[Rfam]
RNA sequence: GCCGUGUCCUCAGGGUCCAGUUUUCCCAGGAAUCCCUUAGGUGCUACGUUGGGGAUUCCUGGAAAUACUGUUCUUGGGGCCAUGGC
Numbered sequence: 001g002c003c004g005u006g007u008c009c010u011c012a013g014g015g016u017c018c019a020g021u022u023u024u025c026c027c028a029g030g031a032a033u034c035c036c037u038u039a040g041g042u043g044c045u046a047c048g049u050u051g052g053g054g055a056u057u058c059c060u061g062g063a064a065a066u067a068c069u070g071u072u073c074u075u076g077g078g079g080c081c082a083u084g085g086c
Base pairs, nucleotide, nucleotide: 018070019069020068021067023065024064026062027061028060029059030058031057032056033055034054035053036052037051
RNA: mir-145 microRNA precursor family
Organism: Cephalopterus ornatus